[Rfam]
RNA sequence: GGCUGUGAGGGCGAUCUGGCUGCGACAUCUGUCACCCCAUUGAUCGCCAGGGUUGAUUCGGCUGAUCUGGCUGGCUAGGCGGGUGUCCCCUUCCUCCCUCACCGCUCCAUGUGCGUCCCUCCCGAAGCUGCGCGCUCGGUCGAAGAGGACGACCUUCCCCGAUAGAGGAGGACCGUUCUUCGGUCAAGGGUAUACGAGUAGCUGCGCUCCCCUGCUAGAACCUCCAAACAAGCUCUCAAAAUAUUAAUAUGAACAUUAAAUGGGUUAAUAAAUGUAAGAUGUCCAGCAUGGUGCCUGGCAUAGAAAAUGCUGAAUAAACCUGAAUUGCGUCCCUCCUUC
Numbered sequence: 001g002g003c004u005g006u007g008a009g010g011g012c013g014a015u016c017u018g019g020c021u022g023c024g025a026c027a028u029c030u031g032u033c034a035c036c037c038c039a040u041u042g043a044u045c046g047c048c049a050g051g052g053u054u055g056a057u058u059c060g061g062c063u064g065a066u067c068u069g070g071c072u073g074g075c076u077a078g079g080c081g082g083g084u085g086u087c088c089c090c091u092u093c094c095u096c097c098c099u100c101a102c103c104g105c106u107c108c109a110u111g112u113g114c115g116u117c118c119c120u121c122c123c124g125a126a127g128c129u130g131c132g133c134g135c136u137c138g139g140u141c142g143a144a145g146a147g148g149a150c151g152a153c154c155u156u157c158c159c160c161g162a163u164a165g166a167g168g169a170g171g172a173c174c175g176u177u178c179u180u181c182g183g184u185c186a187a188g189g190g191u192a193u194a195c196g197a198g199u200a201g202c203u204g205c206g207c208u209c210c211c212c213u214g215c216u217a218g219a220a221c222c223u224c225c226a227a228a229c230a231a232g233c234u235c236u237c238a239a240a241a242u243a244u245u246a247a248u249a250u251g252a253a254c255a256u257u258a259a260a261u262g263g264g265u266u267a268a269u270a271a272a273u274g275u276a277a278g279a280u281g282u283c284c285a286g287c288a289u290g291g292u293g294c295c296u297g298g299c300a301u302a303g304a305a306a307a308u309g310c311u312g313a314a315u316a317a318a319c320c321u322g323a324a325u326u327g328c329g330u331c332c333c334u335c336c337u338u339c
Stems, first nucleotide, its partner, number of pairs: 001108002005102007013093002018090002024087010035074002037070003042067004046062003116171002118168004122139004127135002140162003147158003201299003207293001210291002213288003223279002228275003
RNA: 7SK RNA
Organism: Prolemur simus